The family of this 198-nucleotide RNA is "IS605-orfB-I RNA".
RNA sequence: UCCGGAUAAACUUGUAUCCAUCCAAGAGAAUGGAGCAAGUCACUUUACGGAAUUAAUAUAAGUAAUACAUUUCAGGAUUGAUAAAGACUUACAUAUAAGUGAAAUUCUGAAAUGAUAGGAUAACCGUACGUCCUUUGGUGUGAAACACCAUAAAAGUAAUCUUGAAUAACUUUUGUUAAGUUUUCAAGUUACGGAACA
Numbered sequence: 001u002c003c004g005g006a007u008a009a010a011c012u013u014g015u016a017u018c019c020a021u022c023c024a025a026g027a028g029a030a031u032g033g034a035g036c037a038a039g040u041c042a043c044u045u046u047a048c049g050g051a052a053u054u055a056a057u058a059u060a061a062g063u064a065a066u067a068c069a070u071u072u073c074a075g076g077a078u079u080g081a082u083a084a085a086g087a088c089u090u091a092c093a094u095a096u097a098a099g100u101g102a103a104a105u106u107c108u109g110a111a112a113u114g115a116u117a118g119g120a121u122a123a124c125c126g127u128a129c130g131u132c133c134u135u136u137g138g139u140g141u142g143a144a145a146c147a148c149c150a151u152a153a154a155a156g157u158a159a160u161c162u163u164g165a166a167u168a169a170c171u172u173u174u175g176u177u178a179a180g181u182u183u184u185c186a187a188g189u190u191a192c193g194g195a196a197c198a
Base pairs, nucleotide, nucleotide: 001051002050003049004048006046008044010040011039012038013037014036015035017034018033019032020031021030022028071111072110073109074108075107076106077105078104087100088099090097117134118133119132120131121130124194125193126192127191128190129156136150137149138148139147140146161188162187163186164185165184166183168181
Description
The family's consensus secondary structure is taken from published work.